[Rfam]
RNA: azaaromatic riboswitch aptamer (yjdF RNA)
Organism: Harryflintia acetispora
RNA sequence: AACAGCAGAGAUAAAAACACGUAAGCCGGUUGGUAGUCCGGCGCCGCAAUAGCGGUCAGUAACCUGCCUCCUAGGGUUGUCCGUUCUCUGUAGGAAUCAU
Numbered sequence: 001a002a003c004a005g006c007a008g009a010g011a012u013a014a015a016a017a018c019a020c021g022u023a024a025g026c027c028g029g030u031u032g033g034u035a036g037u038c039c040g041g042c043g044c045c046g047c048a049a050u051a052g053c054g055g056u057c058a059g060u061a062a063c064c065u066g067c068c069u070c071c072u073a074g075g076g077u078u079g080u081c082c083g084u085u086c087u088c089u090g091u092a093g094g095a096a097u098c099a100u
Base pairs, nucleotide, nucleotide: 005091006090007089008088009087010086011085025042026041027040028039029038043056044055045054046053047052066077067076068075069074